[Rfam]
Rfam assigns this 140-nucleotide sequence from Mastacembelus armatus to the family "Small nucleolar RNA SNORD10". The match comes from Rfam's covariance-model search (81 bits). NCBI's taxonomy places the organism under Eukaryota, Gnathostomata, Euteleostomi, Actinopterygii, Mastacembelus. The family's RNA type in Rfam is C/D-box small nucleolar RNA.
RNA sequence: GUAUAGUGAUGAAACGCAUGCGUGUCAACUGACUCUGUAUACUCCUGGUGUGUUUCUGCUCUGGCUGGUGUUCUGCUGGCUUGAGUCCUGAACAUAGCAGUUAUCCAGAGGCAUGAUCAUAAAUCACUGCUUCUGAAUAC
Numbered sequence: 001g002u003a004u005a006g007u008g009a010u011g012a013a014a015c016g017c018a019u020g021c022g023u024g025u026c027a028a029c030u031g032a033c034u035c036u037g038u039a040u041a042c043u044c045c046u047g048g049u050g051u052g053u054u055u056c057u058g059c060u061c062u063g064g065c066u067g068g069u070g071u072u073c074u075g076c077u078g079g080c081u082u083g084a085g086u087c088c089u090g091a092a093c094a095u096a097g098c099a100g101u102u103a104u105c106c107a108g109a110g111g112c113a114u115g116a117u118c119a120u121a122a123a124u125c126a127c128u129g130c131u132u133c134u135g136a137a138u139a140c
Stems, first nucleotide, its partner, number of pairs: 001140004045100003049096003